[Rfam]
RNA sequence: CUCCAAAAUGUCUGCUUCUCAUUCCUUUGGAAGCAGGAAUACGUCCAUAACAUGCUACAUUAAAAAAGGAGUUCUCAGGGCUGCCAACCUUCCAGUAGAGGUUGAGUAGUAGUAUAUUUCUCCUACAUUA
Numbered sequence: 001c002u003c004c005a006a007a008a009u010g011u012c013u014g015c016u017u018c019u020c021a022u023u024c025c026u027u028u029g030g031a032a033g034c035a036g037g038a039a040u041a042c043g044u045c046c047a048u049a050a051c052a053u054g055c056u057a058c059a060u061u062a063a064a065a066a067a068g069g070a071g072u073u074c075u076c077a078g079g080g081c082u083g084c085c086a087a088c089c090u091u092c093c094a095g096u097a098g099a100g101g102u103u104g105a106g107u108a109g110u111a112g113u114a115u116a117u118u119u120c121u122c123c124u125a126c127a128u129u130a
Stems, first nucleotide, its partner, number of pairs: 002050001011037008068123004080110002084106001085104007
RNA: Small nucleolar RNA U109
Organism: Muntiacus reevesi